[Rfam]
RNA sequence: UCAAUGCACUAGGGGUGCCGUAAACGGCUGAGACGGAUGCUAUCCGAUCCCUUUGAACCCGAUCUAGGUAAUGCUAGCGUGGGGAAGUGUAGCUGCACAAUG
Numbered sequence: 001u002c003a004a005u006g007c008a009c010u011a012g013g014g015g016u017g018c019c020g021u022a023a024a025c026g027g028c029u030g031a032g033a034c035g036g037a038u039g040c041u042a043u044c045c046g047a048u049c050c051c052u053u054u055g056a057a058c059c060c061g062a063u064c065u066a067g068g069u070a071a072u073g074c075u076a077g078c079g080u081g082g083g084g085a086a087g088u089g090u091a092g093c094u095g096c097a098c099a100a101u102g
Stems, first nucleotide, its partner, number of pairs: 006090005011052004016046001017028004035045004058083004064077004
RNA: TPP riboswitch aptamer (THI element)
Organism: Paenibacillus sp. J2TS4